[Rfam]
RNA sequence: UUAAAUUGCUUUCCUCGAUAGUUAACUGCAGCCGGUUUUAUUUUUCUUCGGCAGUUAACUACUGAGGGAUAU
Numbered sequence: 001u002u003a004a005a006u007u008g009c010u011u012u013c014c015u016c017g018a019u020a021g022u023u024a025a026c027u028g029c030a031g032c033c034g035g036u037u038u039u040a041u042u043u044u045u046c047u048u049c050g051g052c053a054g055u056u057a058a059c060u061a062c063u064g065a066g067g068g069a070u071a072u
Stems, first nucleotide, its partner, number of pairs: 012068002015065003019061011

A member of the RNA family "MIR2629 microRNA precursor family" from Medicago truncatula, 72 nucleotides long. Pairs were carried over by alignment from the consensus structure, which was predicted with RNAalifold.